[Rfam]
Nucleotides: 075
Stems, first nucleotide, its partner, number of pairs: 001074004
Number, partner (000 for none) and nucleotide at each position: 001074c002073u003072g004071c005000a006000g007000g008000g009000a010000u011000g012000a013000u014000c015000a016000c017000c018000c019000u020000g021000a022000a023000c024000u025000c026000u027000c028000u029000c030000u031000u032000g033000c034000u035000g036000a037000u038000a039000g040000a041000c042000c043000u044000g045000u046000g047000g048000a049000g050000a051000a052000a053000c054000u055000u056000u057000u058000g059000a060000a061000c062000u063000g064000a065000c066000u067000c068000u069000g070000a071004g072003u073002g074001g075000c
The record is a 75-nucleotide RNA from Ptilonorhynchus violaceus, which matches "Small nucleolar RNA SNORD26" in Rfam. By type it is a C/D-box small nucleolar RNA. For this family Rfam cites "A mammalian gene with introns instead of exons generating stable RNA products" (Tycowski et al., Nature, 1996). The source organism's lineage runs through Eukaryota, Chordata, Vertebrata, Archelosauria and Ptilonorhynchus. Rfam 15.1 lists 451 matches to the family in 401 species. Its family is annotated with RNA processing and nucleolus in the Gene Ontology.